This 103-nucleotide RNA sequence belongs to the Rfam family "DUF3800-VII RNA". It is annotated as a small RNA.
[Rfam]
RNA sequence: AAUGAGUUAGUAGCUCGCUGAAUCAACUGGAGGGGAUAGCUCAAUGCUUUCCCAACAAGCUUGACUUGUGGAAUCCUGUAGUCAGGGGAAAGCUCAUUUUUUG
Numbered sequence: 001a002a003u004g005a006g007u008u009a010g011u012a013g014c015u016c017g018c019u020g021a022a023u024c025a026a027c028u029g030g031a032g033g034g035g036a037u038a039g040c041u042c043a044a045u046g047c048u049u050u051c052c053c054a055a056c057a058a059g060c061u062u063g064a065c066u067u068g069u070g071g072a073a074u075c076c077u078g079u080a081g082u083c084a085g086g087g088g089a090a091a092g093c094u095c096a097u098u099u100u101u102u103g
Stems, first nucleotide, its partner, number of pairs: 001098007016086001018085004027081003031077002033053004038048002056068004
Dot-bracket structure: (((((((........(.((((.....(((.((((((.((.......)).))))..((((.....)))).......)).)))))))).....))))))).....